[Rfam]
RNA: TPP riboswitch aptamer (THI element)
Organism: Xanthomonas euvesicatoria
RNA sequence: CCGCCGAAGUGGGGGUACCGCAGCGUGCUGCGGUUGAGAUAGUCCCUUCGAACCUGAUCCGGCUGAUACCGGCGUAGGGAAGCUUCGUCAGAUGCGAU
Numbered sequence: 001c002c003g004c005c006g007a008a009g010u011g012g013g014g015g016u017a018c019c020g021c022a023g024c025g026u027g028c029u030g031c032g033g034u035u036g037a038g039a040u041a042g043u044c045c046c047u048u049c050g051a052a053c054c055u056g057a058u059c060c061g062g063c064u065g066a067u068a069c070c071g072g073c074g075u076a077g078g079g080a081a082g083c084u085u086c087g088u089c090a091g092a093u094g095c096g097a098u
Stems, first nucleotide, its partner, number of pairs: 006086005011047004016041001017034005053078004059072004